The family of this 112-nucleotide sequence from Neobacillus mesonae is "epsC RNA". NCBI's taxonomy places the organism under Bacteria, Bacillati, Bacilli, Caryophanales, Neobacillus.
RNA sequence: UGGUGAUGUCUCCUAGCCGAUAUCAAAGGAGGCACUCGGUCAUGCUGUGGGUUGGAUUAAACCUUAGACGCAAGUCGUCAAAAGUGUGAUGUGAGGAAGGGUUAGAUGCCCU
Numbered sequence: 001u002g003g004u005g006a007u008g009u010c011u012c013c014u015a016g017c018c019g020a021u022a023u024c025a026a027a028g029g030a031g032g033c034a035c036u037c038g039g040u041c042a043u044g045c046u047g048u049g050g051g052u053u054g055g056a057u058u059a060a061a062c063c064u065u066a067g068a069c070g071c072a073a074g075u076c077g078u079c080a081a082a083a084g085u086g087u088g089a090u091g092u093g094a095g096g097a098a099g100g101g102u103u104a105g106a107u108g109c110c111c112u
Stems, first nucleotide, its partner, number of pairs: 001019004007034007035095004039090008049064005067079004098112005